ACEA small nucleolar RNA U3: a 246-nucleotide RNA sequence from Tieghemiomyces parasiticus. Rfam describes the family as follows. Small nucleolar RNAs (snoRNAs) are involved in the processing and modification of rRNA in the nucleolus. There are two main classes of snoRNAs: the box C/D class, and the box H/ACA class. U3 snoRNA is a member of the box C/D class. Indeed, the box C/D element is a subset of the six short sequence elements found in all U3 snoRNAs, namely boxes A, A', B, C, C', and D. The U3 snoRNA secondary structure is characterised by a small 5' domain (with boxes A and A'), and a larger 3' domain (with boxes B, C, C', and D), the two domains being linked by a single-stranded hinge. NCBI's taxonomy places the organism under Eukaryota, Kickxellomycotina, Dimargaritomycetes, Dimargaritales, Tieghemiomyces.
[Rfam]
RNA sequence: UCGACUGUACUCUACAGGAUCAUGUUCGUAGUAAAUAUGUUCUGAUCUCUCAGUACUUUAGAUGGAAAUCCAGCUGGUUGAUGACACGUUGUACGCCAUCCGUAAAGGGAGGCUGUGGUCGCUGCACCCUUUAGGUGUGGUAGACCCUCGAUGAUCUUGCGUUGCUAGUACUCGCCAUCUGCACUCCUGUGCCGGGUGGUUGACGUCUAGUUUUCUUGCAAGGAUGGUCGUACUGUCUGACAGCCU
Number, nucleotide and partner (000 for none) at each position: 001u000002c039003g038004a000005c000006u034007g000008u033009a032010c031011u030012c000013u000014a000015c000016a026017g025018g000019a023020u000021c000022a000023u019024g000025u017026u016027c000028g000029u000030a011031g010032u009033a008034a006035a000036u000037a000038u003039g002040u000041u000042c000043u000044g000045a000046u000047c000048u061049c000050u000051c000052a000053g000054u000055a000056c000057u000058u000059u000060a000061g048062a000063u000064g000065g000066a000067a000068a000069u000070c000071c000072a000073g244074c243075u242076g241077g000078u000079u000080g000081a000082u000083g000084a000085c000086a000087c000088g000089u000090u000091g233092u232093a231094c230095g229096c227097c226098a225099u224100c223101c222102g000103u000104a000105a158106a157107g156108g155109g000110a000111g000112g000113c000114u000115g147116u000117g145118g000119u000120c000121g141122c000123u000124g000125c000126a000127c000128c000129c000130u000131u000132u000133a000134g000135g000136u000137g000138u000139g000140g000141u121142a000143g000144a000145c117146c000147c115148u000149c000150g000151a000152u000153g000154a000155u108156c107157u106158u105159g000160c000161g000162u221163u220164g219165c218166u000167a216168g000169u000170a000171c000172u000173c000174g000175c000176c000177a000178u000179c000180u000181g000182c000183a000184c000185u000186c000187c000188u000189g000190u000191g000192c000193c000194g000195g000196g000197u000198g000199g000200u000201u000202g000203a000204c000205g000206u000207c000208u000209a000210g000211u000212u000213u000214u000215c000216u167217u000218g165219c164220a163221a162222g101223g100224a099225u098226g097227g096228u000229c095230g094231u093232a092233c091234u000235g000236u000237c000238u000239g000240a000241c076242a075243g074244c073245c000246u000

Its family is annotated with RNA processing and nucleolus in the Gene Ontology. The literature on the family includes a 1999 paper in Mol Cell Biol by Speckmann et al., "Nuclear retention elements of U3 small nucleolar RNA". The family's RNA type in Rfam is C/D-box small nucleolar RNA.